RNA: Small nucleolar RNA SNORD28
RNA sequence: GUCAGAUGAUUUGAAUCAAUGCACUGAUGCUCUGUGAAGGUUGAAUUAAUAGCAUGUUAGAGUUCUGAUGGCA
Numbered sequence: 001g002u003c004a005g006a007u008g009a010u011u012u013g014a015a016u017c018a019a020u021g022c023a024c025u026g027a028u029g030c031u032c033u034g035u036g037a038a039g040g041u042u043g044a045a046u047u048a049a050u051a052g053c054a055u056g057u058u059a060g061a062g063u064u065c066u067g068a069u070g071g072c073a
Stems, first nucleotide, its partner, number of pairs: 001072004